Rfam assigns this 166-nucleotide part of an RNA from Pneumocystis wakefieldiae to the family "Eukaryotic small subunit ribosomal RNA".
The match comes from Rfam's covariance-model search (1824 bits).
Its family is annotated with structural constituent of ribosome and ribosome in the Gene Ontology.
A reference for the family is Yusupov et al. (2001), "Crystal structure of the ribosome at 5.5 A resolution", Science.
Lineage of the source: Eukaryota > Opisthokonta > Pneumocystomycetes > Pneumocystaceae > Pneumocystis.
[Rfam]
RNA sequence: CCGCCCGUCGCUACUACCGAUUGAAUGGCUUAGUGAGGUCUUCGGACUGGCGAUAGGUUAUUGGGAACGAUAUACCUAUUGCUGGGAAGUUGAUCAAAUUUGGUCAUUUAGAGGAAGUAAAAGUCGUAACAAGGUUUCCGUAGGUGAACCUGCGGAAGGAUCAUUA
Number, nucleotide and partner (000 for none) at each position: 001c133002c000003g130004c000005c000006c126007g125008u000009c123010g000011c000012u119013a118014c117015u116016a000017c114018c113019g000020a000021u110022u000023g109024a108025a107026u106027g105028g104029c103030u102031u000032a100033g099034u098035g000036a000037g095038g094039u093040c092041u000042u000043c089044g000045g000046a000047c085048u084049g083050g082051c081052g080053a079054u078055a077056g076057g075058u000059u072060a071061u070062u000063g000064g000065g000066a000067a000068c000069g000070a061071u060072a059073u000074a000075c057076c056077u055078a054079u053080u052081g051082c050083u049084g048085g047086g000087a000088a000089g043090u000091u000092g040093a039094u038095c037096a000097a000098a034099u033100u032101u000102g030103g029104u028105c027106a026107u025108u024109u023110a021111g000112a000113g018114g017115a000116a015117g014118u013119a012120a000121a000122a000123g009124u000125c007126g006127u000128a000129a000130c003131a000132a000133g001134g000135u158136u157137u156138c155139c154140g153141u152142a151143g150144g149145u000146g000147a000148a000149c144150c143151u142152g141153c140154g139155g138156a137157a136158g135159g000160a000161u000162c000163a000164u000165u000166a000